[Rfam]
RNA sequence: UGUUGAAUGAUGAUUAAAUCAGACGGAUUCCCACUGAUAUUAUAUAUGUGAUUUCACAACCAGCAACUACUGACAACA
Numbered sequence: 001u002g003u004u005g006a007a008u009g010a011u012g013a014u015u016a017a018a019u020c021a022g023a024c025g026g027a028u029u030c031c032c033a034c035u036g037a038u039a040u041u042a043u044a045u046a047u048g049u050g051a052u053u054u055c056a057c058a059a060c061c062a063g064c065a066a067c068u069a070c071u072g073a074c075a076a077c078a
Base pairs, nucleotide, nucleotide: 001078002077003076004075005074